[Rfam]
RNA sequence: UAACAACACCAGCAAUGUGGUUUUUAGUGGCACUAUUAGCAAAACCUUCCAUUAUUACCUGUAGACAUCAUACUACAGCAUUUGACACAGACGAGCAGGCAUACGGUACCGAAAUACUAGUAGAUCGCGUAUGUCUACUCGUGCAGAGAAUCACCCUAUGGCUAACUAACACUGCACGAAGGUUAGUAGCUUCUGAUUAGAUGUAAAACCAAUCAAGAAAAUGAAUUUAUGGCAAGCUAAAUGAAGAAACCAGAAGAUCUGUAUUCAAGAGUAGUGAUUGACUCUUGAAUUGUAGCAGAUGCCUCCCAGAGGAAAGCGUCACUUAGUUUGUCUUAUUUAUGAGUAAUCAUUGGGGAAUUUAAUUUGGACUUAAAUUGGAUGGGGUAGC
Numbered sequence: 001u002a003a004c005a006a007c008a009c010c011a012g013c014a015a016u017g018u019g020g021u022u023u024u025u026a027g028u029g030g031c032a033c034u035a036u037u038a039g040c041a042a043a044a045c046c047u048u049c050c051a052u053u054a055u056u057a058c059c060u061g062u063a064g065a066c067a068u069c070a071u072a073c074u075a076c077a078g079c080a081u082u083u084g085a086c087a088c089a090g091a092c093g094a095g096c097a098g099g100c101a102u103a104c105g106g107u108a109c110c111g112a113a114a115u116a117c118u119a120g121u122a123g124a125u126c127g128c129g130u131a132u133g134u135c136u137a138c139u140c141g142u143g144c145a146g147a148g149a150a151u152c153a154c155c156c157u158a159u160g161g162c163u164a165a166c167u168a169a170c171a172c173u174g175c176a177c178g179a180a181g182g183u184u185a186g187u188a189g190c191u192u193c194u195g196a197u198u199a200g201a202u203g204u205a206a207a208a209c210c211a212a213u214c215a216a217g218a219a220a221a222u223g224a225a226u227u228u229a230u231g232g233c234a235a236g237c238u239a240a241a242u243g244a245a246g247a248a249a250c251c252a253g254a255a256g257a258u259c260u261g262u263a264u265u266c267a268a269g270a271g272u273a274g275u276g277a278u279u280g281a282c283u284c285u286u287g288a289a290u291u292g293u294a295g296c297a298g299a300u301g302c303c304u305c306c307c308a309g310a311g312g313a314a315a316g317c318g319u320c321a322c323u324u325a326g327u328u329u330g331u332c333u334u335a336u337u338u339a340u341g342a343g344u345a346a347u348c349a350u351u352g353g354g355g356a357a358u359u360u361a362a363u364u365u366g367g368a369c370u371u372a373a374a375u376u377g378g379a380u381g382g383g384g385u386a387g388c
Stems, first nucleotide, its partner, number of pairs: 048070001053065001055063001092141004097136008108125001112121001154384006160191005166186005192367002196363006211351003215347001221340005228335002231332002236327005242321003257300006264289009302312003
RNA: Deltacoronavirus 3'UTR